[Rfam]
mir-1421 microRNA precursor family: a 74-nucleotide RNA sequence from Ornithorhynchus anatinus. The organism belongs to Ornithorhynchus, within Eukaryota. The base pairs follow the family's consensus structure, which was predicted with RNAalifold. It scores 54 bits against the family's covariance model. Gene Ontology terms of the family: miRNA-mediated post-transcriptional gene silencing and RISC complex.
RNA sequence: CGGUGUGAGCUGGUCGCAUGUGGUCCAGUGUGAUAGUGCAUCACAUCGCAUCACGUGUGACCUUGCUACACUGC
Numbered sequence: 001c002g003g004u005g006u007g008a009g010c011u012g013g014u015c016g017c018a019u020g021u022g023g024u025c026c027a028g029u030g031u032g033a034u035a036g037u038g039c040a041u042c043a044c045a046u047c048g049c050a051u052c053a054c055g056u057g058u059g060a061c062c063u064u065g066c067u068a069c070a071c072u073g074c
Stems, first nucleotide, its partner, number of pairs: 003071005012062010023051002026048001
Dot-bracket structure: ..(((((....((((((((((.((.(.....................).)).))))))))))....)))))...